[Rfam]
RNA sequence: GUCCUUGCGCAGUGGUGAUCACCGUAGUCAAUGAGGGUCUCCCGAUGGCACGGUUAUUGCUGAUUGAAAACUAUCCCAAUUACCCGCACUCGGCCACUGGCCUUGUGCAAUUUUUGAGCAUGUCCCAACAU
Numbered sequence: 001g002u003c004c005u006u007g008c009g010c011a012g013u014g015g016u017g018a019u020c021a022c023c024g025u026a027g028u029c030a031a032u033g034a035g036g037g038u039c040u041c042c043c044g045a046u047g048g049c050a051c052g053g054u055u056a057u058u059g060c061u062g063a064u065u066g067a068a069a070a071c072u073a074u075c076c077c078a079a080u081u082a083c084c085c086g087c088a089c090u091c092g093g094c095c096a097c098u099g100g101c102c103u104u105g106u107g108c109a110a111u112u113u114u115u116g117a118g119c120a121u122g123u124c125c126c127a128a129c130a131u
Base pairs, nucleotide, nucleotide: 021054022053023052024051025050027049028048029047035043036042037041086108087107088106089105092102093101094100095099120131121130122129123128
Rfam assigns this 131-nucleotide RNA from Fonticula alba to the family "U4 spliceosomal RNA". About the family: U4 small nuclear RNA (U4 snRNA) is a component of the major U2-dependent spliceosome. The source organism's lineage runs through Eukaryota, Opisthokonta, Rotosphaerida, Fonticulaceae and Fonticula. By type it is a spliceosomal small nuclear RNA. It scores 83 bits against the family's covariance model. Pairs were carried over by alignment from the consensus structure, which is taken from published work.